mir-105 microRNA precursor family: a 79-nucleotide sequence from Mus musculus. The organism belongs to Mus, within Eukaryota.

RNA sequence: UGCAUUUUAGCCAAGUGCUCAGAUGCUUGUGGUGGCUGCUUAUGCACCACGAAUGCUUGAGCAUGUGCUAUGGUACCUA
Dot-bracket structure: .(.(((.(((.((.((((((((.(..(....((((.(((....))))))))...).)))))))).))))).))).)...
Numbered sequence: 001u002g003c004a005u006u007u008u009a010g011c012c013a014a015g016u017g018c019u020c021a022g023a024u025g026c027u028u029g030u031g032g033u034g035g036c037u038g039c040u041u042a043u044g045c046a047c048c049a050c051g052a053a054u055g056c057u058u059g060a061g062c063a064u065g066u067g068c069u070a071u072g073g074u075a076c077c078u079a
Stems, first nucleotide, its partner, number of pairs: 002076001004074003008070003012067002015064008024055001027051001032050004037046003
It is one of the family's seed sequences.